[Rfam]
RNA sequence: CAACAAGCAUUGGAAUAGUAAUUUUAUGAUGGUCUUAGAGAGUCGAUGGCAGCUGAAAAAUCGACACCCGCUGAUAAAAUGAACCUACCCAAUGGCAAUGACCGCAAAACGGUCGGUGGAAAGGCCUUAUCCUUUACGAGUUGGAUUAUCCCUAUCGAUAAUCAACAAAGGUGGUACCGCGAAAUCCAAGCAUUUCGUCCUUUUU
Dot-bracket structure: ......((.((((.......((((((....(((........((((((............)))))))))......))))))........))))..))..((((((.....))))))((......))..................(((((((......)))))))....((((.......(((((((......)))))))))))...
Numbered sequence: 001c002a003a004c005a006a007g008c009a010u011u012g013g014a015a016u017a018g019u020a021a022u023u024u025u026a027u028g029a030u031g032g033u034c035u036u037a038g039a040g041a042g043u044c045g046a047u048g049g050c051a052g053c054u055g056a057a058a059a060a061u062c063g064a065c066a067c068c069c070g071c072u073g074a075u076a077a078a079a080u081g082a083a084c085c086u087a088c089c090c091a092a093u094g095g096c097a098a099u100g101a102c103c104g105c106a107a108a109a110c111g112g113u114c115g116g117u118g119g120a121a122a123g124g125c126c127u128u129a130u131c132c133u134u135u136a137c138g139a140g141u142u143g144g145a146u147u148a149u150c151c152c153u154a155u156c157g158a159u160a161a162u163c164a165a166c167a168a169a170g171g172u173g174g175u176a177c178c179g180c181g182a183a184a185u186c187c188a189a190g191c192a193u194u195u196c197g198u199c200c201u202u203u204u205u
Stems, first nucleotide, its partner, number of pairs: 007096002010092004021080006031068003042065006099115006116125002144163007168202004179198007
T-box leader: a 205-nucleotide RNA from Enterococcus casseliflavus. By type it is a cis-regulatory leader. The organism belongs to Enterococcus casseliflavus, within Bacteria.